[Rfam]
RNA: Bacterial RNase P class A
RNA sequence: CGAGUCGGUCGGGCGACCGCGUCGGGAUCUCCGGAUCCCGUCGAGGAAAGUCCGGACUCCACAGGGCAGGGUGGUUGUCAACGGCAACCCGGGGCGACCCGCGGGACAGUGCCACAGAGAACAGACCGCCUCCGGGUCCGCCCGGAGGUAAGGGUGAAACGGUGGUGUAAGAGACCACCAGCACCCCGGGUGACCGGGGUGGCUCGGUAAACCCCACCCGGAGCAAGGUCGAGAGACCGCACCGCCACCCGUGGCGGAACGGUUGCGCAGGCGUUCGAGGGCUGCCCGCCCGAGCCUGCGGGUGGACCGCUGGAGCCUGCCGGCGACGGCAGGCCGAGAUGGAUGGUCGCCGAACGGAGCACCGUGAGGUGCCCGGGAACAGGAUCCGGCUUACAGACCGACUCGUCCG
Numbered sequence: 001c002g003a004g005u006c007g008g009u010c011g012g013g014c015g016a017c018c019g020c021g022u023c024g025g026g027a028u029c030u031c032c033g034g035a036u037c038c039c040g041u042c043g044a045g046g047a048a049a050g051u052c053c054g055g056a057c058u059c060c061a062c063a064g065g066g067c068a069g070g071g072u073g074g075u076u077g078u079c080a081a082c083g084g085c086a087a088c089c090c091g092g093g094g095c096g097a098c099c100c101g102c103g104g105g106a107c108a109g110u111g112c113c114a115c116a117g118a119g120a121a122c123a124g125a126c127c128g129c130c131u132c133c134g135g136g137u138c139c140g141c142c143c144g145g146a147g148g149u150a151a152g153g154g155u156g157a158a159a160c161g162g163u164g165g166u167g168u169a170a171g172a173g174a175c176c177a178c179c180a181g182c183a184c185c186c187c188g189g190g191u192g193a194c195c196g197g198g199g200u201g202g203c204u205c206g207g208u209a210a211a212c213c214c215c216a217c218c219c220g221g222a223g224c225a226a227g228g229u230c231g232a233g234a235g236a237c238c239g240c241a242c243c244g245c246c247a248c249c250c251g252u253g254g255c256g257g258a259a260c261g262g263u264u265g266c267g268c269a270g271g272c273g274u275u276c277g278a279g280g281g282c283u284g285c286c287c288g289c290c291c292g293a294g295c296c297u298g299c300g301g302g303u304g305g306a307c308c309g310c311u312g313g314a315g316c317c318u319g320c321c322g323g324c325g326a327c328g329g330c331a332g333g334c335c336g337a338g339a340u341g342g343a344u345g346g347u348c349g350c351c352g353a354a355c356g357g358a359g360c361a362c363c364g365u366g367a368g369g370u371g372c373c374c375g376g377g378a379a380c381a382g383g384a385u386c387c388g389g390c391u392u393a394c395a396g397a398c399c400g401a402c403u404c405g406u407c408c409g
Base pairs, nucleotide, nucleotide: 001405002404003403004402005401006400007399008398009397010396011394012351013350014349015348016347017346018345020043021042023040024039025038026037027036028035048392049391050390052389053388054387055386056385057223058222059221060220064287065286066285067284069219070218071217072216073215074088075087076086077085078084089103090101091100092099093098104214105213109212110211111208112207113206126153127152128149129148130147131146132145133144134143135142136141161179162178163177164176165175166174181203182201183200184199185198186197187196188195189194227308228307229306230305267299268298269297270296271295272294279291280290281289282288315334316333317332318331319330320329321328322327